The family of this 600-nucleotide part of an RNA from Closterium sp. NIES-67 is "Eukaryotic large subunit ribosomal RNA".

RNA sequence: AUCAGCGGGGAAAGAAGACCCUGUUGAGCUUGACUCUAGUCUGACAUUGUGAAAUGACUCACGAGGUGUAGCAUAAGUGGGAGGGAAACCGCCGGUGAAAUACCACUACUCUUGACGUUAUUUUACUUAAUCCGUGAGGUGGAGGCGGGGCAUUGCCCCUGAUUCUUGCCUAAAGGCUUCGGCCGAUCCAGGCGGAUGACAUUGUCAGGUGGGGAGUUUGGCUGGGGCGGCACAUCCGUUAAACGAUAACGCGGGUGUCCUAAGGCGAGCUCAACGAGAACAGAAAUCUCGUGUGGAGCAAAAGGGCAAAAGCUCGCUUGACUUUGAUUUUCAGUACGAAUACAAGCCGUGAAAGCGGGGCCUAUCGAUCCUUUAGCUCUUCGGAGCUUGAAGGUAGAGGUGUCAGAAAAGUUACCACAGGGAUAACUGGCUUGUGGCAGCCAAGCGUUCAUAGCGACGUUGCUUUUUGAUCCUUCGAUGUCGGCUCUUCCUAUCAUUGGUGAAGCAGAAUUCACCAAGUGUUGGAUUGUUCACCCACCAAUAGGGAACGUGAGCUGGGUUUAGACCGUCGUGAGACAGGUUAGUUUUACCCUACUGAUG
Numbered sequence: 001a002u003c004a005g006c007g008g009g010g011a012a013a014g015a016a017g018a019c020c021c022u023g024u025u026g027a028g029c030u031u032g033a034c035u036c037u038a039g040u041c042u043g044a045c046a047u048u049g050u051g052a053a054a055u056g057a058c059u060c061a062c063g064a065g066g067u068g069u070a071g072c073a074u075a076a077g078u079g080g081g082a083g084g085g086a087a088a089c090c091g092c093c094g095g096u097g098a099a100a101u102a103c104c105a106c107u108a109c110u111c112u113u114g115a116c117g118u119u120a121u122u123u124u125a126c127u128u129a130a131u132c133c134g135u136g137a138g139g140u141g142g143a144g145g146c147g148g149g150g151c152a153u154u155g156c157c158c159c160u161g162a163u164u165c166u167u168g169c170c171u172a173a174a175g176g177c178u179u180c181g182g183c184c185g186a187u188c189c190a191g192g193c194g195g196a197u198g199a200c201a202u203u204g205u206c207a208g209g210u211g212g213g214g215a216g217u218u219u220g221g222c223u224g225g226g227g228c229g230g231c232a233c234a235u236c237c238g239u240u241a242a243a244c245g246a247u248a249a250c251g252c253g254g255g256u257g258u259c260c261u262a263a264g265g266c267g268a269g270c271u272c273a274a275c276g277a278g279a280a281c282a283g284a285a286a287u288c289u290c291g292u293g294u295g296g297a298g299c300a301a302a303a304g305g306g307c308a309a310a311a312g313c314u315c316g317c318u319u320g321a322c323u324u325u326g327a328u329u330u331u332c333a334g335u336a337c338g339a340a341u342a343c344a345a346g347c348c349g350u351g352a353a354a355g356c357g358g359g360g361c362c363u364a365u366c367g368a369u370c371c372u373u374u375a376g377c378u379c380u381u382c383g384g385a386g387c388u389u390g391a392a393g394g395u396a397g398a399g400g401u402g403u404c405a406g407a408a409a410a411g412u413u414a415c416c417a418c419a420g421g422g423a424u425a426a427c428u429g430g431c432u433u434g435u436g437g438c439a440g441c442c443a444a445g446c447g448u449u450c451a452u453a454g455c456g457a458c459g460u461u462g463c464u465u466u467u468u469g470a471u472c473c474u475u476c477g478a479u480g481u482c483g484g485c486u487c488u489u490c491c492u493a494u495c496a497u498u499g500g501u502g503a504a505g506c507a508g509a510a511u512u513c514a515c516c517a518a519g520u521g522u523u524g525g526a527u528u529g530u531u532c533a534c535c536c537a538c539c540a541a542u543a544g545g546g547a548a549c550g551u552g553a554g555c556u557g558g559g560u561u562u563a564g565a566c567c568g569u570c571g572u573g574a575g576a577c578a579g580g581u582u583a584g585u586u587u588u589a590c591c592c593u594a595c596u597g598a599u600g
Stems, first nucleotide, its partner, number of pairs: 001599005008593003012588002020421004025417002027413005033217004040209007049126010059115003063111003076107005083090002130197005140190004147159005175184003220233001221231003234256006259360002265317006271297002274292006298307002322346003327341004348357003371399005379393004430471001432469001434468001436464006445455002482558001483556004487550001488547005495521002499516006523537003527533001564582004568577003
The base pairs follow the family's consensus structure, which is taken from published work. A search with the family's covariance model found it, with a score of 3012 bits. The organism belongs to Closterium peracerosum-strigosum-littorale complex, within Eukaryota.